[Rfam]
RNA sequence: AGAACAACAACUUUACUCUUUCGUAUAGCCUCAAUAAUCGGAUUGAGGGUCUCUACAGGAAACCGUAAAUUUCCUUGCUACGAAAAGGGCUUCCUUCUAU
Numbered sequence: 001a002g003a004a005c006a007a008c009a010a011c012u013u014u015a016c017u018c019u020u021u022c023g024u025a026u027a028g029c030c031u032c033a034a035u036a037a038u039c040g041g042a043u044u045g046a047g048g049g050u051c052u053c054u055a056c057a058g059g060a061a062a063c064c065g066u067a068a069a070u071u072u073c074c075u076u077g078c079u080a081c082g083a084a085a086a087g088g089g090c091u092u093c094c095u096u097c098u099a100u
Stems, first nucleotide, its partner, number of pairs: 019085007029048007057075006
Dot-bracket structure: ..................(((((((...(((((((......)))))))........((((((.......))))))...)))))))...............